[Rfam]
RNA sequence: CGCCGAACCGCGACACCGUCGUGGACCGGGGACCCAGGUAAGUGAGGCGCGUGUCGCCUCGGGGGUGAAUCCGCGUCAGCGGUAGCGCAUCUUCCAGCGCGAACCCGGCAGCUAACCCGGUAGGCGGUGAGG
Numbered sequence: 001c002g003c004c005g006a007a008c009c010g011c012g013a014c015a016c017c018g019u020c021g022u023g024g025a026c027c028g029g030g031g032a033c034c035c036a037g038g039u040a041a042g043u044g045a046g047g048c049g050c051g052u053g054u055c056g057c058c059u060c061g062g063g064g065g066u067g068a069a070u071c072c073g074c075g076u077c078a079g080c081g082g083u084a085g086c087g088c089a090u091c092u093u094c095c096a097g098c099g100c101g102a103a104c105c106c107g108g109c110a111g112c113u114a115a116c117c118c119g120g121u122a123g124g125c126g127g128u129g130a131g132g
Stems, first nucleotide, its partner, number of pairs: 001126004008024005025121006035062001063106003071082004085100004
RNA: c-di-AMP riboswitch aptamer (ydaO/yuaA leader)